[Rfam]
RNA sequence: AGCACAAGUGAUGAACAACAAAGGGACUUAAUACUGAAACCUGAUGUGGUAUGUGAUGCCUGAUGUGC
Dot-bracket structure: .(((((.........................................................)))))

The record is a 68-nucleotide RNA from Ailuropoda melanoleuca, which matches "Small nucleolar RNA SNORD82" in Rfam. Rfam links the family to the GO terms nucleolus and RNA processing. On this family, see Galardi et al., Mol Cell Biol 2002: "Purified box C/D snoRNPs are able to reproduce site-specific 2'-O-methylation of target RNA in vitro". Pairs were carried over by alignment from the consensus structure, which was predicted with PFOLD. By type it is a C/D-box small nucleolar RNA. About the family: snoRNA U82 or Z25 is found in both humans and mice. Rfam 15.1 lists 649 matches to the family in 590 species.